[Rfam]
RNA sequence: UUUUGGAACCAUUCGAAACAACACAGCAAGUUAAAAUAAGGCUUUGUCCGUGCACAACUUGAAAAAGCGAGCACCGACUCGGUUGCUAAUAAG
Numbered sequence: 001u002u003u004u005g006g007a008a009c010c011a012u013u014c015g016a017a018a019c020a021a022c023a024c025a026g027c028a029a030g031u032u033a034a035a036a037u038a039a040g041g042c043u044u045u046g047u048c049c050g051u052g053c054a055c056a057a058c059u060u061g062a063a064a065a066a067g068c069g070a071g072c073a074c075c076g077a078c079u080c081g082g083u084u085g086c087u088a089a090u091a092a093g
Base pairs, nucleotide, nucleotide: 001036002035003034004033005032009026012023040049041048059066060065070087071086072085073084074082075081076080
Trans-activating crRNA: a 93-nucleotide RNA sequence from Streptococcus oralis. The sequence is in the family's curated seed alignment. Taxonomically the source falls in Streptococcus oralis (Bacteria, Bacillota, Lactobacillales, Streptococcus). Rfam's curators write: RNA-guided Streptococcus pyogenes Cas9 (SpCas9) is a sequence-specific DNA endonuclease, the Trans-activating CRISPR RNA form an hybrid with the crRNA (crRNA/tracrRNA). The RNA hybrid acts as a guide for the endonuclease Cas9. The literature on the family includes a 2019 paper in Mol Cell by Jiang et al., "Temperature-Responsive Competitive Inhibition of CRISPR-Cas9". By type it is a CRISPR RNA.